[Rfam]
RNA sequence: GAGAUUUCGUCAGGAUUACCUCCUCCCAAUUCUGACGAAUACGGCCAGCUCUCUCCUCCUCCCGAUAGCUGGUCGACAAAAACGACACCCGCCGGACCUCCUCCCCCGGCGGGUGUUGUUU
Numbered sequence: 001g002a003g004a005u006u007u008c009g010u011c012a013g014g015a016u017u018a019c020c021u022c023c024u025c026c027c028a029a030u031u032c033u034g035a036c037g038a039a040u041a042c043g044g045c046c047a048g049c050u051c052u053c054u055c056c057u058c059c060u061c062c063c064g065a066u067a068g069c070u071g072g073u074c075g076a077c078a079a080a081a082a083c084g085a086c087a088c089c090c091g092c093c094g095g096a097c098c099u100c101c102u103c104c105c106c107c108g109g110c111g112g113g114u115g116u117u118g119u120u121u
Stems, first nucleotide, its partner, number of pairs: 007038003011034006043074008052065001085116011
Rfam assigns this 121-nucleotide sequence from Nitratireductor basaltis to the family "Alphaproteobacterial ar14". A search with the family's covariance model found it, with a score of 95 bits. Smr14C2 was renamed NfeR1 (Nodule Formation Efficiency RNA) highly expressed in salt stress and during the symbiotic interaction on legume roots. Its family is annotated with biological process involved in symbiotic interaction in the Gene Ontology. The organism belongs to Nitratireductor, within Bacteria. The base pairs follow the family's consensus structure.